[Rfam]
RNA sequence: AAACAGCCCCUUAUGUUUUGAUUUUUUGGCAGUUUUGGACCCCCAGUCCAUUAGUGAGGUGCCACGUGGCCCCCUAAAUAAUACACGUGGCACCUCACUAAUGGACUGGGGGUCCAAAACUGCCAAAGAAUCAAAACAUAGGGGGUUGUUU
Numbered sequence: 001a002a003a004c005a006g007c008c009c010c011u012u013a014u015g016u017u018u019u020g021a022u023u024u025u026u027u028g029g030c031a032g033u034u035u036u037g038g039a040c041c042c043c044c045a046g047u048c049c050a051u052u053a054g055u056g057a058g059g060u061g062c063c064a065c066g067u068g069g070c071c072c073c074c075u076a077a078a079u080a081a082u083a084c085a086c087g088u089g090g091c092a093c094c095u096c097a098c099u100a101a102u103g104g105a106c107u108g109g110g111g112g113u114c115c116a117a118a119a120c121u122g123c124c125a126a127a128g129a130a131u132c133a134a135a136a137c138a139u140a141g142g143g144g145g146u147u148g149u150u151u
Stems, first nucleotide, its partner, number of pairs: 001151002004148005012140034057095002060092008
Rfam assigns this 151-nucleotide RNA from Medicago truncatula to the family "MIR2619 microRNA precursor family". The organism belongs to Medicago, within Eukaryota.